[Rfam]
RNA sequence: AGGUCUAAUGAUGAUAAUUGUAUAUCUUAGCGGAUUUGAGUGAGAUUUUAUCAAUGAUCUGAAUGUUACACACACUGAAACCU
Numbered sequence: 001a002g003g004u005c006u007a008a009u010g011a012u013g014a015u016a017a018u019u020g021u022a023u024a025u026c027u028u029a030g031c032g033g034a035u036u037u038g039a040g041u042g043a044g045a046u047u048u049u050a051u052c053a054a055u056g057a058u059c060u061g062a063a064u065g066u067u068a069c070a071c072a073c074a075c076u077g078a079a080a081c082c083u
Stems, first nucleotide, its partner, number of pairs: 001083004006079001

The record is an 83-nucleotide RNA sequence from Papaver somniferum, which matches "Small nucleolar RNA R11/Z151" in Rfam. The family's consensus secondary structure was predicted with PFOLD. Taxonomically the source falls in Papaver (Eukaryota, Spermatophyta, Ranunculales, Papaveraceae). Rfam 15.1 lists 802 matches to the family in 218 species.